[Rfam]
The family of this 240-nucleotide RNA from Dothidotthia symphoricarpi is "U2 spliceosomal RNA".

RNA sequence: ACAGCUUUGCCUUUUGGCUUAGAUCAAGUGUAGUAUCUGUUCUUUUCAGGUAUGUUUUCUUUGUUCUUCAUUCACCCUAUCCUUGCUAAUCACGUGACCAGUUUAAUCUCUGAAACGACACUACGGUGUCCUUCAAGAUUAUCCUUAUUUUUGUCACUCGCUGGCGUCUCCCUGGGCUUGCUCAUAGUCGCCGGCACAGUGUCGCUCGUAUUUCACUACCUCGAGCUGACGCGACCUUUU
Numbered sequence: 001a002c003a004g005c006u007u008u009g010c011c012u013u014u015u016g017g018c019u020u021a022g023a024u025c026a027a028g029u030g031u032a033g034u035a036u037c038u039g040u041u042c043u044u045u046u047c048a049g050g051u052a053u054g055u056u057u058u059c060u061u062u063g064u065u066c067u068u069c070a071u072u073c074a075c076c077c078u079a080u081c082c083u084u085g086c087u088a089a090u091c092a093c094g095u096g097a098c099c100a101g102u103u104u105a106a107u108c109u110c111u112g113a114a115a116c117g118a119c120a121c122u123a124c125g126g127u128g129u130c131c132u133u134c135a136a137g138a139u140u141a142u143c144c145u146u147a148u149u150u151u152u153g154u155c156a157c158u159c160g161c162u163g164g165c166g167u168c169u170c171c172c173u174g175g176g177c178u179u180g181c182u183c184a185u186a187g188u189c190g191c192c193g194g195c196a197c198a199g200u201g202u203c204g205c206u207c208g209u210a211u212u213u214c215a216c217u218a219c220c221u222c223g224a225g226c227u228g229a230c231g232c233g234a235c236c237u238u239u240u
Base pairs, nucleotide, nucleotide: 005022006021009018010017011016044115045114046113047112048111049110117130118129119128120127121126160195161194162193163192164191165190166189173184174183175182176181199232200231201230202229203228204226205225206224207223208222
A search with the family's covariance model found it, with a score of 116 bits.